Rfam assigns this 130-nucleotide RNA sequence from Tupaia belangeri to the family "Small nucleolar RNA SNORA38". By type it is an H/ACA-box small nucleolar RNA. The source organism's lineage runs through Eukaryota, Chordata, Vertebrata, Boreoeutheria and Tupaia belangeri. ACA38 is a member of the H/ACA class of snoRNA that guide the sites of modification of uridines to pseudouridines. Its family is annotated with nucleolus, RNA processing and Cajal body in the Gene Ontology.
RNA sequence: CCCCCCUACAAAGGCGUAUCUGUGGUUCCUGUCUUCGGACGUGUAAGAAUUAGGGGCAAAGAAAUGUGGAUUUGGAGGACUCUGAAGCCUGCUUGCUCCCUGAAGAUUCAAGGUCCACCAUCCUAUAUUG
Numbered sequence: 001c002c003c004c005c006c007u008a009c010a011a012a013g014g015c016g017u018a019u020c021u022g023u024g025g026u027u028c029c030u031g032u033c034u035u036c037g038g039a040c041g042u043g044u045a046a047g048a049a050u051u052a053g054g055g056g057c058a059a060a061g062a063a064a065u066g067u068g069g070a071u072u073u074g075g076a077g078g079a080c081u082c083u084g085a086a087g088c089c090u091g092c093u094u095g096c097u098c099c100c101u102g103a104a105g106a107u108u109c110a111a112g113g114u115c116c117a118c119c120a121u122c123c124u125a126u127a128u129u130g
Stems, first nucleotide, its partner, number of pairs: 002056004015043003019039003024029001068123003072120001091107001093105002096102001